The family of this 157-nucleotide sequence from Variovorax sp. PBL-E5 is "FMN riboswitch aptamer (RFN element)".
Lineage of the source: Bacteria > Pseudomonadota > Burkholderiales > Comamonadaceae > Variovorax.
The base pairs follow the family's consensus structure, which is taken from published work.
About the family: The RFN element is a highly conserved domain that is found frequently in the 5'-untranslated regions of prokaryotic mRNAs that encode for flavin mononucleotide (FMN) biosynthesis and transport proteins.
RNA sequence: AAGCGUUCUCAGGGCGGGGCGAAAUUCCCCACCGGCGGUGAUGGCGACACGUUCGCACGAGCCCGCGAGCGCCUGCGGCCCGUCAUGGACCGCAGGGUCAGCAGACCUGGUGAGAUCCCGGGGCCGACGGUCACAGUCCGGAUGAAAGAGAGCGCGG
Number, nucleotide and partner (000 for none) at each position: 001a000002a000003g155004c154005g153006u152007u151008c150009u149010c148011a000012g000013g000014g000015c000016g000017g029018g028019g027020c000021g000022a000023a000024a000025u000026u000027c019028c018029c017030c000031a137032c136033c126034g125035g066036c065037g064038g063039u000040g000041a000042u000043g000044g000045c000046g000047a000048c000049a000050c000051g000052u000053u000054c000055g000056c000057a000058c000059g000060a000061g124062c123063c038064c037065g036066c035067g000068a000069g102070c101071g000072c000073c000074u000075g000076c000077g000078g000079c000080c000081c000082g000083u000084c000085a000086u000087g000088g000089a000090c000091c000092g000093c000094a000095g000096g000097g000098u000099c000100a000101g070102c069103a000104g000105a000106c122107c121108u120109g119110g118111u000112g000113a000114g000115a000116u000117c000118c110119c109120g108121g107122g106123g062124c061125c034126g033127a000128c140129g139130g138131u000132c000133a000134c000135a000136g032137u031138c130139c129140g128141g000142a000143u000144g000145a000146a000147a000148g010149a009150g008151a007152g006153c005154g004155c003156g000157g000